[Rfam]
Notes: Rfam assigns this 262-nucleotide part of an RNA from Natranaeroarchaeum sulfidigenes to the family "Archaeal large subunit ribosomal RNA".
RNA sequence: GAGUGUGUCUGAAUGGCGAGUCUAACCCGAGCAUCGGGGAAGGCACAGGGAAACCAAUACGGCCGCAGUCUUACGACGAGGGCCACCGUGUUCAAGCGCGGGGAGCCAUUCGGACACGACCCGAAUCCGGACGAUCUAUGCGUGGGCAAGGUGAAGCAUGGCGAAAGCCAUGUGGAGGCCUGCUAGAGUUGGUGUUUUACAAUACCCUCUCGUGACCCACGUAUAGGGGUGAAAGGCCCAUCGAGUCCGGCAACAGCUGGUU
Numbered sequence: 001g002a003g004u005g006u007g008u009c010u011g012a013a014u015g016g017c018g019a020g021u022c023u024a025a026c027c028c029g030a031g032c033a034u035c036g037g038g039g040a041a042g043g044c045a046c047a048g049g050g051a052a053a054c055c056a057a058u059a060c061g062g063c064c065g066c067a068g069u070c071u072u073a074c075g076a077c078g079a080g081g082g083c084c085a086c087c088g089u090g091u092u093c094a095a096g097c098g099c100g101g102g103g104a105g106c107c108a109u110u111c112g113g114a115c116a117c118g119a120c121c122c123g124a125a126u127c128c129g130g131a132c133g134a135u136c137u138a139u140g141c142g143u144g145g146g147c148a149a150g151g152u153g154a155a156g157c158a159u160g161g162c163g164a165a166a167g168c169c170a171u172g173u174g175g176a177g178g179c180c181u182g183c184u185a186g187a188g189u190u191g192g193u194g195u196u197u198u199a200c201a202a203u204a205c206c207c208u209c210u211c212g213u214g215a216c217c218c219a220c221g222u223a224u225a226g227g228g229g230u231g232a233a234a235g236g237c238c239c240a241u242c243g244a245g246u247c248c249g250g251c252a253a254c255a256g257c258u259g260g261u262u
Base pairs, nucleotide, nucleotide: 005117006116007115008114009113010112011111012110013109014108015107016106017105020044021043022042023041026038027037028036029035048055049054061084062083063082064081068077069076070075087100088099089098090097120260121259123257127250128249129248130247131246132245136226137225138224139223140222141221142220143219144218145217146216147214149181150180151179152178156173157172158171159170160169161168162167186211187210188209191207192206194205195204228238229237230236